[Rfam]
RNA sequence: AAUGCACGGUUCUGUACGUCGCUUUGGAUAAAAGCGUCUGCUAAAUAUAAUGUC
Numbered sequence: 001a002a003u004g005c006a007c008g009g010u011u012c013u014g015u016a017c018g019u020c021g022c023u024u025u026g027g028a029u030a031a032a033a034g035c036g037u038c039u040g041c042u043a044a045a046u047a048u049a050a051u052g053u054c
Stems, first nucleotide, its partner, number of pairs: 013043001014041003020036006